This 102-nucleotide sequence from Thermaerobacillus caldiproteolyticus belongs to the Rfam family "Guanidine-I riboswitch aptamer". The base pairs follow the family's consensus structure. Rfam's curators write: This family represents a conserved RNA structure found upstream of the ykkC and yxkD genes in Bacillus subtilis and related genes in other bacteria. Taxonomically the source falls in Thermaerobacillus (Bacteria, Bacilli, Caryophanales, Anoxybacillaceae). For this family Rfam cites "Structural basis for guanidine sensing by the ykkC family of riboswitches" (Battaglia et al., RNA, 2017).

RNA sequence: UUGAAAGUUUUCUAGGGUUCCGUGGUUAUCUGCAACCAGUCUGUGACCGAGAGAAAACGCGCAGGGUUACUGUGUACACGGAGGGACAAAAGCCCGGGAGGA
Numbered sequence: 001u002u003g004a005a006a007g008u009u010u011u012c013u014a015g016g017g018u019u020c021c022g023u024g025g026u027u028a029u030c031u032g033c034a035a036c037c038a039g040u041c042u043g044u045g046a047c048c049g050a051g052a053g054a055a056a057a058c059g060c061g062c063a064g065g066g067u068u069a070c071u072g073u074g075u076a077c078a079c080g081g082a083g084g085g086a087c088a089a090a091a092g093c094c095c096g097g098g099a100g101g102a
Stems, first nucleotide, its partner, number of pairs: 007058006015048002020045001021043001022041001023038005059075006077097001079100001083095003